[Rfam]
RNA: RAGATH-18 RNA
RNA sequence: CCUUUGGACUGUCAUAUCAAAUGAAAGUAGUAUAUGAAUUUAUUCAUUACAAAAUCAGACAGGUUGAAUAAGGAA
Dot-bracket structure: ((((....(((((........(((.....(((..((........)).)))....)))))))).......))))..